[Rfam]
RNA sequence: AAUCCAUCACGACCGGCAGAGGGACAGGCCCGAUGAAGCCGGGGCAGCCUCCCGCGGGGUAACCCGCGGGAAAGGUGCCAAAUCCUGCGGCGGCCCCUCGGGGUCGGCCGGAAGAUGGAGC
Numbered sequence: 001a002a003u004c005c006a007u008c009a010c011g012a013c014c015g016g017c018a019g020a021g022g023g024a025c026a027g028g029c030c031c032g033a034u035g036a037a038g039c040c041g042g043g044g045c046a047g048c049c050u051c052c053c054g055c056g057g058g059g060u061a062a063c064c065c066g067c068g069g070g071a072a073a074g075g076u077g078c079c080a081a082a083u084c085c086u087g088c089g090g091c092g093g094c095c096c097c098u099c100g101g102g103g104u105c106g107g108c109c110g111g112a113a114g115a116u117g118g119a120g121c
Base pairs, nucleotide, nucleotide: 003119004118005117006116007115008114013042014041015040016039017038021031022030023029025087026086027085028084043079044078045077046076048075049074050071051070052069053068054067055066056065083113088110089109090108091107093105

The record is a 121-nucleotide sequence from Ornithinicoccus hortensis, which matches "SAM riboswitch aptamer (S box leader)" in Rfam. The match comes from Rfam's covariance-model search (74 bits). Its family is annotated with regulation of gene expression in the Gene Ontology. The organism belongs to Ornithinicoccus, within Bacteria.